[Rfam]
RNA: Neisseria sigma-E sRNA
Organism: Neisseria meningitidis
RNA sequence: ACUAGUUUGAUAGUCCUUUAUAUCUAUCAAUACUCCUUGGGAAGCCUCCGCCAUACGGCAGGAGGCAUUUUUU
Numbered sequence: 001a002c003u004a005g006u007u008u009g010a011u012a013g014u015c016c017u018u019u020a021u022a023u024c025u026a027u028c029a030a031u032a033c034u035c036c037u038u039g040g041g042a043a044g045c046c047u048c049c050g051c052c053a054u055a056c057g058g059c060a061g062g063a064g065g066c067a068u069u070u071u072u073u
Base pairs, nucleotide, nucleotide: 004034005033006032007030008029009028010027011026012025013024044066045065046064047063048062049061050059051058052057